[Rfam]
RNA: Nuclear RNase P
RNA sequence: ACAGACGGAAAGCUGCGAUGUUCACCACACACAGAACGCUCUUCUCGCGUUUCUCUUCGUGAACGGGCUAAGGUCUGAGCAUUCUACGCUUCCCUCGAUGAGCCCUAGCAGGGCCUUCUUUUCAUGACCUGGCGGCACACCAGAAACGACACCUCUGCGCUGAUACUCUGGCCUAUACUUACCGCUUCCUUACGAGAGGGACUCCGUCGGGGGGAGGGAGUGGCCUAUCGGACGGGGUUUGGGAUAUGUCGCGGAAGCCGGGUUGUCCAACCUGUAAGCUCUCGCGUCUACGCGCCAAGCAUCACUGCAAUCGGGCAUUGCUACCAUAAGAAACGGGUGUGCGAUCCUGGCUUUUCAGUCGGGUGAACGGCCACGCCUUGUCGGUCAGGCAUCCCGGAAGCUAGCAAACGAGGACGCGAGACUUUUCACUGGACGGCCCUUCAGUGCACUUCGCAGCUCGCUGUUCUCACAAGUGAAACUCGAUUCAGACUACUCUUCGUCUGU
Numbered sequence: 001a002c003a004g005a006c007g008g009a010a011a012g013c014u015g016c017g018a019u020g021u022u023c024a025c026c027a028c029a030c031a032c033a034g035a036a037c038g039c040u041c042u043u044c045u046c047g048c049g050u051u052u053c054u055c056u057u058c059g060u061g062a063a064c065g066g067g068c069u070a071a072g073g074u075c076u077g078a079g080c081a082u083u084c085u086a087c088g089c090u091u092c093c094c095u096c097g098a099u100g101a102g103c104c105c106u107a108g109c110a111g112g113g114c115c116u117u118c119u120u121u122u123c124a125u126g127a128c129c130u131g132g133c134g135g136c137a138c139a140c141c142a143g144a145a146a147c148g149a150c151a152c153c154u155c156u157g158c159g160c161u162g163a164u165a166c167u168c169u170g171g172c173c174u175a176u177a178c179u180u181a182c183c184g185c186u187u188c189c190u191u192a193c194g195a196g197a198g199g200g201a202c203u204c205c206g207u208c209g210g211g212g213g214g215a216g217g218g219a220g221u222g223g224c225c226u227a228u229c230g231g232a233c234g235g236g237g238u239u240u241g242g243g244a245u246a247u248g249u250c251g252c253g254g255a256a257g258c259c260g261g262g263u264u265g266u267c268c269a270a271c272c273u274g275u276a277a278g279c280u281c282u283c284g285c286g287u288c289u290a291c292g293c294g295c296c297a298a299g300c301a302u303c304a305c306u307g308c309a310a311u312c313g314g315g316c317a318u319u320g321c322u323a324c325c326a327u328a329a330g331a332a333a334c335g336g337g338u339g340u341g342c343g344a345u346c347c348u349g350g351c352u353u354u355u356c357a358g359u360c361g362g363g364u365g366a367a368c369g370g371c372c373a374c375g376c377c378u379u380g381u382c383g384g385u386c387a388g389g390c391a392u393c394c395c396g397g398a399a400g401c402u403a404g405c406a407a408a409c410g411a412g413g414a415c416g417c418g419a420g421a422c423u424u425u426u427c428a429c430u431g432g433a434c435g436g437c438c439c440u441u442c443a444g445u446g447c448a449c450u451u452c453g454c455a456g457c458u459c460g461c462u463g464u465u466c467u468c469a470c471a472a473g474u475g476a477a478a479c480u481c482g483a484u485u486c487a488g489a490c491u492a493c494u495c496u497u498c499g500u501c502u503g504u
Base pairs, nucleotide, nucleotide: 001504002503003502004501007498008497009496012457013456014455015454016453017452018451020064021063022062023061024060034052035051036050037049038048039047075488076487077486078485079484090256091255102114103113104112105111117127118126132252133251134250135249136248137247151238152237153236154235155234458476459475460474461473462472